[Rfam]
RNA: mir-19 microRNA precursor family
RNA sequence: UUCUACGGCUAGUUUUGCAGGUUGGCAUCCAGCUGUAUGGUACUCUGCCAAGCAAAUCAUGCAAAACUGACUGCGGCA
Numbered sequence: 001u002u003c004u005a006c007g008g009c010u011a012g013u014u015u016u017g018c019a020g021g022u023u024g025g026c027a028u029c030c031a032g033c034u035g036u037a038u039g040g041u042a043c044u045c046u047g048c049c050a051a052g053c054a055a056a057u058c059a060u061g062c063a064a065a066a067c068u069g070a071c072u073g074c075g076g077c078a
Base pairs, nucleotide, nucleotide: 003076004075006073007072008071010069011068012067013066014065015064016063017062018061019060021058022056023055025053026052028050032048033047